[Rfam]
RNA sequence: AGACGCUCCGAAGACCUGCUCGCUAGGCCACGCACAGAGGACAUGGUUUCUCAAGGGCUCCGCGCCCGCCUAGGGGAAAGUCCCCGGACCGCCGGCAGAGAGUGUCGGGCGCAACCCGCGCCCUGGCCCGCCCCGUCCCCGCGCAGCCUCCGCCGAGACGCCCUCGGGCCGAGCGGGUGGGCGCGGAGCGGGCGCUCGUCACGGACACAGACACGCAGGUAGUGCGCGGGGCGCACCAACAGCACGGGGCUCACUCUCGGGACGUC
Numbered sequence: 001a002g003a004c005g006c007u008c009c010g011a012a013g014a015c016c017u018g019c020u021c022g023c024u025a026g027g028c029c030a031c032g033c034a035c036a037g038a039g040g041a042c043a044u045g046g047u048u049u050c051u052c053a054a055g056g057g058c059u060c061c062g063c064g065c066c067c068g069c070c071u072a073g074g075g076g077a078a079a080g081u082c083c084c085c086g087g088a089c090c091g092c093c094g095g096c097a098g099a100g101a102g103u104g105u106c107g108g109g110c111g112c113a114a115c116c117c118g119c120g121c122c123c124u125g126g127c128c129c130g131c132c133c134c135g136u137c138c139c140c141g142c143g144c145a146g147c148c149u150c151c152g153c154c155g156a157g158a159c160g161c162c163c164u165c166g167g168g169c170c171g172a173g174c175g176g177g178u179g180g181g182c183g184c185g186g187a188g189c190g191g192g193c194g195c196u197c198g199u200c201a202c203g204g205a206c207a208c209a210g211a212c213a214c215g216c217a218g219g220u221a222g223u224g225c226g227c228g229g230g231g232c233g234c235a236c237c238a239a240c241a242g243c244a245c246g247g248g249g250c251u252c253a254c255u256c257u258c259g260g261g262a263c264g265u266c
Stems, first nucleotide, its partner, number of pairs: 002266004007261005014220006023073006037052005079251002082249004094106004107123006125193001127191001130189002133186003140181001142179001150176004160169003222236006
RNase MRP: a 266-nucleotide RNA sequence from Piaya cayana.
The base pairs follow the family's consensus structure, which is taken from published work.
Rfam classes the family as a ribozyme.
A reference for the family is Schmitt et al. (1993), "Secondary structure of RNase MRP RNA as predicted by phylogenetic comparison", FASEB J.
From the family's description: RNase MRP is an enzymatically active ribonucleoprotein with two distinct roles in eukaryotes.
Lineage of the source: Eukaryota > Bilateria > Dinosauria > Coelurosauria > Piaya.